[Rfam]
RNA sequence: UCUGAAAAAUGGCAAACCUAAUCGAAAGAUAGGGACGCAAAGCCACGGACCUAAUGCAAAUCUUUGCAAUGGCAGCCGGGUUACCGAG
Numbered sequence: 001u002c003u004g005a006a007a008a009a010u011g012g013c014a015a016a017c018c019u020a021a022u023c024g025a026a027a028g029a030u031a032g033g034g035a036c037g038c039a040a041a042g043c044c045a046c047g048g049a050c051c052u053a054a055u056g057c058a059a060a061u062c063u064u065u066g067c068a069a070u071g072g073c074a075g076c077c078g079g080g081u082u083a084c085c086g087a088g
Base pairs, nucleotide, nucleotide: 012038013037017033018032019031020030022029023028041082042081043080044079046078047077048076050072051071056067057066058065059064
Shown here is an 88-nucleotide sequence from Halalkalibacter nanhaiisediminis, a member of the family "c-di-GMP-I riboswitch aptamer". The base pairs follow the family's consensus structure, which is taken from published work. Lineage of the source: Bacteria > Bacillati > Bacilli > Caryophanales > Halalkalibacter. Rfam links the family to the GO term cyclic-di-GMP binding. GEMM was predicted in a large-scale screen for bacterial structured RNA regulatory elements.